Shown here is a 94-nucleotide RNA sequence from Pontibaca methylaminivorans, a member of the family "Rhodo-rpoB RNA". The family's consensus secondary structure is taken from published work. The family's RNA type in Rfam is cis-regulatory element. The match comes from Rfam's covariance-model search (86 bits).

[Rfam]
Nucleotides: 094
Stems, first nucleotide, its partner, number of pairs: 001044005010032008066094005071088005
Number, partner (000 for none) and nucleotide at each position: 001044g002043g003042a004041u005040c006000g007000g008000g009000a010032g011031a012030u013029c014028g015027c016026c017025g018000g019000c020000c021000g022000g023000g024000a025017c026016g027015g028014c029013g030012a031011u032010c033000a034000u035000g036000a037000a038000u039000u040005g041004a042003u043002c044001c045000g046000a047000a048000c049000c050000c051000g052000c053000c054000c055000u056000c057000u058000c059000g060000g061000a062000u063000g064000g065000g066094c067093a068092g069091g070090a071088a072087g073086c074085c075084g076000a077000g078000g079000c080000c081000c082000g083000a084075c085074g086073g087072u088071u089000u090070u091069c092068c093067u094066g